[Rfam]
RNA sequence: CCUCCUUGCCUGGCGCCUUCGGGUGCUAGACAAUCUUCCCUUCGGCGUGCCUGCUGGCGGGCGACAGCUGAAGACGACAGCGCGGUUUUUACGGAUAUUUUUGUUCGCGCGGUCUGCCCUCCUUAGCCGGUCGCUGUCUGCGAUCCCGAUGGAGCGGACACAAAAAUUCGUCCAUGUU
Numbered sequence: 001c002c003u004c005c006u007u008g009c010c011u012g013g014c015g016c017c018u019u020c021g022g023g024u025g026c027u028a029g030a031c032a033a034u035c036u037u038c039c040c041u042u043c044g045g046c047g048u049g050c051c052u053g054c055u056g057g058c059g060g061g062c063g064a065c066a067g068c069u070g071a072a073g074a075c076g077a078c079a080g081c082g083c084g085g086u087u088u089u090u091a092c093g094g095a096u097a098u099u100u101u102u103g104u105u106c107g108c109g110c111g112g113u114c115u116g117c118c119c120u121c122c123u124u125a126g127c128c129g130g131u132c133g134c135u136g137u138c139u140g141c142g143a144u145c146c147c148g149a150u151g152g153a154g155c156g157g158a159c160a161c162a163a164a165a166a167u168u169c170g171u172c173c174a175u176g177u178u
Stems, first nucleotide, its partner, number of pairs: 006033003010029003015024003039076001040073007047065001048063004052056001094172003097167008117157002119154004128148003131143004

About this RNA:
A member of the RNA family "Ascomycota telomerase RNA" from Coniochaeta hoffmannii, 178 nucleotides of a longer RNA. Pairs were carried over by alignment from the consensus structure. The literature on the family includes a 2013 paper in Nucleic Acids Res by Qi et al., "The common ancestral core of vertebrate and fungal telomerase RNAs". The match comes from Rfam's covariance-model search (530 bits). Rfam links the family to the GO terms telomerase catalytic core complex, telomere maintenance via telomerase and telomerase activity.